The record is a 118-nucleotide sequence from Cynanchum wilfordii, which matches "Plastid-psbA-1 3UTR RNA" in Rfam. Rfam's curators put it in the seed alignment. For this family Rfam cites "Retrograde signaling in plants: A critical review focusing on the GUN pathway and beyond" (Richter et al., Plant Commun, 2023).

RNA sequence: UAGAAGUUCCAUCUAUCAAUGGCUAAGACCCCAGUCUUAGUGUAUAGGAGUUUUUGAAAAAUAAAGGAGCAAAAAUCACCUUCUUGUUCUAUCAAGAGGGUGAUAUUGCUCCUUUAUU
Number, nucleotide and partner (000 for none) at each position: 001u000002a000003g000004a000005a000006g000007u000008u000009c022010c021011a020012u019013c000014u000015a000016u000017c000018a000019a012020u011021g010022g009023c000024u000025a000026a000027g000028a000029c000030c000031c000032c000033a000034g000035u000036c000037u000038u000039a000040g000041u000042g000043u000044a000045u000046a000047g000048g000049a000050g000051u000052u000053u000054u000055u000056g000057a000058a000059a000060a000061a000062u000063a115064a114065a113066g112067g111068a110069g109070c108071a107072a106073a000074a104075a000076u000077c000078a000079c099080c000081u098082u097083c096084u095085u094086g000087u000088u000089c000090u000091a000092u000093c000094a085095a084096g083097a082098g081099g079100g000101u000102g000103a000104u074105a000106u072107u071108g070109c069110u068111c067112c066113u065114u064115u063116a000117u000118u000